[Rfam]
RNA sequence: UCAUGUGCGGCUGAUGACAGUGUUCCAGCUGAGGGUCUGUGAUUGCUCAGUCUCAAAGUAAACGCUCUGACGCACUGUGG
Numbered sequence: 001u002c003a004u005g006u007g008c009g010g011c012u013g014a015u016g017a018c019a020g021u022g023u024u025c026c027a028g029c030u031g032a033g034g035g036u037c038u039g040u041g042a043u044u045g046c047u048c049a050g051u052c053u054c055a056a057a058g059u060a061a062a063c064g065c066u067c068u069g070a071c072g073c074a075c076u077g078u079g080g
Stems, first nucleotide, its partner, number of pairs: 005075005010021004029050005
RNA: Small nucleolar RNA U105B